[Rfam]
RNA sequence: AAUGAUGGUUUUGUCGCUUUUCAUUAUAGGUCAUAUGGGACUUUUUGUAUACACUCAAAAAGGCUUAAGAACAUGCUUGAAAAAUGCUCUUAAGCC
Numbered sequence: 001a002a003u004g005a006u007g008g009u010u011u012u013g014u015c016g017c018u019u020u021u022c023a024u025u026a027u028a029g030g031u032c033a034u035a036u037g038g039g040a041c042u043u044u045u046u047g048u049a050u051a052c053a054c055u056c057a058a059a060a061a062g063g064c065u066u067a068a069g070a071a072c073a074u075g076c077u078u079g080a081a082a083a084a085u086g087c088u089c090u091u092a093a094g095c096c
Stems, first nucleotide, its partner, number of pairs: 001025005008017002028043005062096005068090003072086003
Streptococcus RNA 266: a 96-nucleotide RNA sequence from Streptococcus varani.
A reference for the family is Acebo et al. (2012), "Identification of 88 regulatory small RNAs in the TIGR4 strain of the human pathogen Streptococcus pneumoniae", RNA.
By type it is a small RNA.
Pairs were carried over by alignment from the consensus structure.